[Rfam]
RNA sequence: GCUCAGGCUUCCCAGUGUUCAGACUACCUGUUCAGGAGGGUCGAACGCUGUACAGUAGUCUGCACAUUGGUUAGGCCGGGUU
Numbered sequence: 001g002c003u004c005a006g007g008c009u010u011c012c013c014a015g016u017g018u019u020c021a022g023a024c025u026a027c028c029u030g031u032u033c034a035g036g037a038g039g040g041u042c043g044a045a046c047g048c049u050g051u052a053c054a055g056u057a058g059u060c061u062g063c064a065c066a067u068u069g070g071u072u073a074g075g076c077c078g079g080g081u082u
Stems, first nucleotide, its partner, number of pairs: 012070007020062007028055004033050002

The family of this 82-nucleotide RNA sequence from Cuculus canorus is "mir-199 microRNA precursor family". For this family Rfam cites "miRNPs: a novel class of ribonucleoproteins containing numerous microRNAs" (Mourelatos et al., Genes Dev, 2002). Rfam 15.1 lists 1,828 matches to the family in 648 species. A search with the family's covariance model found it, with a score of 88 bits.